A member of the RNA family "PyrR binding site" from Thermotalea metallivorans, 103 nucleotides long. The organism belongs to Thermotalea, within Bacteria. From the family's description: This family represents the PyrR binding site and terminator structure. This RNA structure is found upstream of a variety of genes involved in pyrimidine biosynthesis and transport. The alignment also includes a portion of the antiterminator structure. Its family is annotated with pyrimidine nucleobase transport and pyrimidine nucleobase biosynthetic process in the Gene Ontology. Rfam classes the family as a cis-regulatory element.
RNA sequence: UGUUCCUUUAAAUUAACCCCGUGAGGUUAAAAAGGUUAUAUACAGCAGAAUAUAUUGUUGUUUUGUCAUGCCUUUUUUCCUCAUGGAAAAAAGGCUUUUAUAU
Numbered sequence: 001u002g003u004u005c006c007u008u009u010a011a012a013u014u015a016a017c018c019c020c021g022u023g024a025g026g027u028u029a030a031a032a033a034g035g036u037u038a039u040a041u042a043c044a045g046c047a048g049a050a051u052a053u054a055u056u057g058u059u060g061u062u063u064u065g066u067c068a069u070g071c072c073u074u075u076u077u078u079c080c081u082c083a084u085g086g087a088a089a090a091a092a093g094g095c096u097u098u099u100a101u102a103u
Base pairs, nucleotide, nucleotide: 005035006034007033008032009031013030014029015028016027017026018025042061043060044059045058046057047056048055068097070095071094072093073092074091075090076089077088078087079086080085